[Rfam]
Nucleotides: 131
Stems, first nucleotide, its partner, number of pairs: 002057004016043006024030002069124003073121001093107005
Number, partner (000 for none) and nucleotide at each position: 001000c002057c003056c004055u005054c006000c007000u008000a009000c010000a011000a012000a013000g014000g015000c016043g017042u018041g019040u020039u021038u022000u023000u024030g025029g026000u027000u028000c029025c030024c031000u032000g033000u034000c035000u036000u037000u038021g039020g040019a041018c042017a043016c044000a045000c046000a047000a048000g049000a050000a051000u052000u053000a054005g055004a056003g057002g058000a059000a060000a061000a062000g063000u064000a065000a066000a067000g068000u069124g070123g071122a072000u073121u074000u075000g076000g077000a078000g079000a080000u081000g082000u083000c084000u085000g086000g087000g088000g089000c090000c091000u092000g093107c094106u095105u096104g097103c098000u099000c100000c101000u102000u103097g104096u105095a106094g107093g108000g109000u110000c111000a112000g113000g114000a115000u116000c117000a118000a119000u120000u121073a122071u123070u124069c125000u126000a127000c128000a129000u130000a131000a